RNA sequence: AUUAUAAUUACAGAUUUAACUCAUAUAUACCCUGAAUAUGGCAGGGAGUAUCUACCGGGAGCCUUAAAUUUCCGACUAUGGGUGAAAAUAAGUGUGUA
Numbered sequence: 001a002u003u004a005u006a007a008u009u010a011c012a013g014a015u016u017u018a019a020c021u022c023a024u025a026u027a028u029a030c031c032c033u034g035a036a037u038a039u040g041g042c043a044g045g046g047a048g049u050a051u052c053u054a055c056c057g058g059g060a061g062c063c064u065u066a067a068a069u070u071u072c073c074g075a076c077u078a079u080g081g082g083u084g085a086a087a088a089u090a091a092g093u094g095u096g097u098a
Stems, first nucleotide, its partner, number of pairs: 019083007030046005056074006
The family of this 98-nucleotide RNA from Clostridium sp. JN-9 is "Purine riboswitch aptamer".